[Rfam]
RNA sequence: GAUCGCAGUGACGACUCCGUAAAAUUCAAGCUCAACAGACCGGAUUGCAGAGCUUUCCUCUUUCUAUUUGAGAGAGAGAAAGAUCUUUGCGUGUCGAAUACCCCGCUGAACUGAGCGAUC
Dot-bracket structure: ((((((............................................................................................................))))))